About this RNA
A member of the RNA family "Selenocysteine insertion sequence 1" from Sphaeramia orbicularis, 62 nucleotides long. Rfam 15.1 lists 3,793 matches to the family in 721 species. A search with the family's covariance model found it, with a score of 40 bits. The family's RNA type in Rfam is cis-regulatory element. On this family, see Walczak et al., RNA 1996: "A novel RNA structural motif in the selenocysteine insertion element of eukaryotic selenoprotein mRNAs".
[Rfam]
RNA sequence: CUCACUUUUGUGACGACGUCACAGUAAACCAACUCUGGGUUGUGACGUCUGAUGUGUGUGCG
Numbered sequence: 001c002u003c004a005c006u007u008u009u010g011u012g013a014c015g016a017c018g019u020c021a022c023a024g025u026a027a028a029c030c031a032a033c034u035c036u037g038g039g040u041u042g043u044g045a046c047g048u049c050u051g052a053u054g055u056g057u058g059u060g061c062g
Stems, first nucleotide, its partner, number of pairs: 001062001003060003015049010029038003